[Rfam]
RNA sequence: UGGCUUGCUUCUGUGUGGAAGACUUGUGAUUUUGUUGUUGUUAGUUAGAUGAAGUGACAACAAAUCACGGUCUGCCCUACAGCACAGGCCC
Number, nucleotide and partner (000 for none) at each position: 001u000002g090003g089004c088005u087006u086007g000008c000009u084010u000011c082012u081013g080014u079015g078016u000017g076018g075019a000020a073021g072022a071023c070024u069025u000026g068027u067028g066029a065030u064031u063032u062033u000034g061035u060036u059037g058038u057039u056040g000041u000042u000043a000044g000045u000046u000047a000048g000049a000050u000051g000052a000053a000054g000055u000056g039057a038058c037059a036060a035061c034062a032063a031064a030065u029066c028067a027068c026069g024070g023071u022072c021073u020074g000075c018076c017077c000078u015079a014080c013081a012082g011083c000084a009085c000086a006087g005088g004089c003090c002091c000
Rfam assigns this 91-nucleotide RNA from Danio rerio to the family "mir-7 microRNA precursor family". The literature on the family includes a 2001 paper in Science by Lagos-Quintana et al., "Identification of novel genes coding for small expressed RNAs". Pairs were carried over by alignment from the consensus structure, which was predicted with PFOLD. Rfam's curators write: This family represents the microRNA (miRNA) precursor mir-7. Rfam 15.1 lists 2,589 matches to the family in 797 species. The sequence is in the family's curated seed alignment.